[Rfam]
RNA sequence: AACGGGUUUGCCUGCUGACGGAACGUUGUGGAGCACCACAGUGCAGACAAAACCGGGUUUUGUUACGCCGACCGUCUGGGCAGCCUUG
Numbered sequence: 001a002a003c004g005g006g007u008u009u010g011c012c013u014g015c016u017g018a019c020g021g022a023a024c025g026u027u028g029u030g031g032a033g034c035a036c037c038a039c040a041g042u043g044c045a046g047a048c049a050a051a052a053c054c055g056g057g058u059u060u061u062g063u064u065a066c067g068c069c070g071a072c073c074g075u076c077u078g079g080g081c082a083g084c085c086u087u088g
Stems, first nucleotide, its partner, number of pairs: 003055003007051004012046001015043001017076005028039004067081003
Dot-bracket structure: ..(((.((((.(..(.[[[[[......((((....))))...)..).)))).)))...........(((..]]]]]..))).......